A member of the RNA family "small nucleolar RNA snoR117" from Quercus lobata, 81 nucleotides long. Its family is annotated with RNA processing and nucleolus in the Gene Ontology. By type it is a C/D-box small nucleolar RNA. It scores 73 bits against the family's covariance model.
RNA sequence: GGCCUGUGAUGAUUCAAAUUGUCCGUACCAUCUGAGAUACAUUAUCUUUGAUGUAUUAAACUUUCGCCUUUUCUGAGGCCU
Numbered sequence: 001g002g003c004c005u006g007u008g009a010u011g012a013u014u015c016a017a018a019u020u021g022u023c024c025g026u027a028c029c030a031u032c033u034g035a036g037a038u039a040c041a042u043u044a045u046c047u048u049u050g051a052u053g054u055a056u057u058a059a060a061c062u063u064u065c066g067c068c069u070u071u072u073c074u075g076a077g078g079c080c081u
Base pairs, nucleotide, nucleotide: 001080002079003078004077

For this family Rfam cites "Mining small RNA sequencing data: a new approach to identify small nucleolar RNAs in Arabidopsis" (Chen and Wu, Nucleic Acids Res, 2009).